[Rfam]
Nucleotides: 126
Stems, first nucleotide, its partner, number of pairs: 006040005013032005064122002067119004073110004083104005090097002
Number, partner (000 for none) and nucleotide at each position: 001000u002000a003000c004000g005000a006040g007039a008038a009037u010036g011000a012000a013032g014031a015030g016029a017028u018000u019000a020000g021000u022000g023000a024000c025000a026000g027000u028017a029016u030015c031014u032013c033000u034000g035000c036010c037009a038008u039007u040006u041000u042000u043000u044000g045000a046000a047000c048000a049000u050000u051000g052000a053000g054000g055000u056000a057000u058000a059000a060000a061000a062000a063000u064122g065121g066000g067119c068118g069117a070116g071000u072000c073110a074109u075108c076107g077000u078000u079000u080000c081000g082000g083104u084103c085102g086101c087100c088000c089000u090097u091096u092000c093000u094000g095000u096091g097090a098000u099000u100087g101086g102085c103084g104083a105000a106000u107076c108075g109074a110073u111000u112000g113000u114000u115000c116070c117069u118068c119067g120000u121065c122064u123000a124000c125000a126000u
Shown here is a 126-nucleotide RNA sequence from Phaseolus vulgaris, a member of the family "Small nucleolar RNA snoR111". The base pairs follow the family's consensus structure, which was predicted with WAR. The organism belongs to Phaseolus, within Eukaryota. A reference for the family is Marker et al. (2002), "Experimental RNomics: identification of 140 candidates for small non-messenger RNAs in the plant Arabidopsis thaliana", Curr Biol. A search with the family's covariance model found it, with a score of 94 bits.